[Rfam]
RNA sequence: CCUCGCGGACGACCGCGAGCCGGUUUUCCGAAUCACGGGACGACCCGG
Numbered sequence: 001c002c003u004c005g006c007g008g009a010c011g012a013c014c015g016c017g018a019g020c021c022g023g024u025u026u027u028c029c030g031a032a033u034c035a036c037g038g039g040a041c042g043a044c045c046c047g048g
Stems, first nucleotide, its partner, number of pairs: 002019007036047004
A member of the RNA family "Guanidine-II riboswitch aptamer (mini-ykkC)" from Herbaspirillum seropedicae, 48 nucleotides long. The base pairs follow the family's consensus structure, which is taken from published work. Gene Ontology term of the family: regulation of gene expression. Simpler in structure and has fewer highly conserved nucleotide positions than the ykkC-yxkD leader. Despite this each of its two stem-loop structures directly bind free guanidine. Therefore, mini-ykkC RNA motif represents a distinct class of guanidine-sensing RNAs.